[Rfam]
RNA sequence: CUGGGGUAUGGGGACAUGUAUCCACGGACUUGGUCAGGCAUGCUAGUGGGAGCCCUAUGUGCAUUGGCAGGGGUGCUUACUAUAGCCAUGCCUGUGCCUGUGAUUGUUAACAAU
Numbered sequence: 001c002u003g004g005g006g007u008a009u010g011g012g013g014a015c016a017u018g019u020a021u022c023c024a025c026g027g028a029c030u031u032g033g034u035c036a037g038g039c040a041u042g043c044u045a046g047u048g049g050g051a052g053c054c055c056u057a058u059g060u061g062c063a064u065u066g067g068c069a070g071g072g073g074u075g076c077u078u079a080c081u082a083u084a085g086c087c088a089u090g091c092c093u094g095u096g097c098c099u100g101u102g103a104u105u106g107u108u109a110a111c112a113a114u
Stems, first nucleotide, its partner, number of pairs: 002113001004111001008107004014101003018097004037077004050062001
Rfam assigns this 114-nucleotide sequence from Cairina moschata to the family "Potassium channel RNA editing signal". It is annotated as a cis-regulatory element. A search with the family's covariance model found it, with a score of 90 bits.